[Rfam]
RNA sequence: ACUCAACACGAAUUCUUUAAAAAGGGUGAGUCGUUGUUGUAAAAGCGCGCCGUUACCGGUUUCAAUCGGUUGGACGGAUUCUUGAUCAGCACGUUAAUCCUAAACUUGUUUUUAAGGAGUUU
Numbered sequence: 001a002c003u004c005a006a007c008a009c010g011a012a013u014u015c016u017u018u019a020a021a022a023a024g025g026g027u028g029a030g031u032c033g034u035u036g037u038u039g040u041a042a043a044a045g046c047g048c049g050c051c052g053u054u055a056c057c058g059g060u061u062u063c064a065a066u067c068g069g070u071u072g073g074a075c076g077g078a079u080u081c082u083u084g085a086u087c088a089g090c091a092c093g094u095u096a097a098u099c100c101u102a103a104a105c106u107u108g109u110u111u112u113u114a115a116g117g118a119g120u121u122u
Stems, first nucleotide, its partner, number of pairs: 023101005035091004043083003050077004
The family of this 122-nucleotide sequence from Aureitalea marina is "6S-Flavo RNA".
The base pairs follow the family's consensus structure, which is taken from published work.
It is annotated as a small RNA.
The source organism's lineage runs through Bacteria, Pseudomonadati, Bacteroidota, Flavobacteriaceae and Aureitalea.